Overview
The family of this 54-nucleotide RNA from Anguilla anguilla is "UnaL2 LINE 3' element". Its family is annotated with transposition, RNA-mediated in the Gene Ontology. Rfam describes the family as follows. The eel long interspersed element (LINE) UnaL2 and its partner short interspersed element (SINE) share a conserved 3' tail containing a stem-loop that is critical for their retrotransposition. The source organism's lineage runs through Eukaryota, Bilateria, Neopterygii, Elopocephalai and Anguilla.
[Rfam]
RNA sequence: UAUAUAUCUUUUUGUACGUCGCUUUGGAUAAAAGCGUCUGCCAAAUAAAUGUAG
Numbered sequence: 001u002a003u004a005u006a007u008c009u010u011u012u013u014g015u016a017c018g019u020c021g022c023u024u025u026g027g028a029u030a031a032a033a034g035c036g037u038c039u040g041c042c043a044a045a046u047a048a049a050u051g052u053a054g
Stems, first nucleotide, its partner, number of pairs: 013043001014041003020036006